The family of this 68-nucleotide RNA from Nocardia sp. SYP-A9097 is "ASdes TB sRNA". On this family, see Arnvig and Young, Mol Microbiol 2009: "Identification of small RNAs in Mycobacterium tuberculosis". The match comes from Rfam's covariance-model search (65 bits). The base pairs follow the family's consensus structure, which is taken from published work. Lineage of the source: Bacteria > Actinomycetes > Mycobacteriales > Nocardiaceae > Nocardia.
[Rfam]
RNA sequence: AGCUCGAUGGGGUCGACCGCGCGCGUCACUAUGAGGAAGUUGCGGAUCAUGAUUUCGUGCCGGUUCUC
Numbered sequence: 001a002g003c004u005c006g007a008u009g010g011g012g013u014c015g016a017c018c019g020c021g022c023g024c025g026u027c028a029c030u031a032u033g034a035g036g037a038a039g040u041u042g043c044g045g046a047u048c049a050u051g052a053u054u055u056c057g058u059g060c061c062g063g064u065u066c067u068c
Base pairs, nucleotide, nucleotide: 004063005062006061008059009058011030012029013028015027016026017025035056036055037054038053040052041051042050044048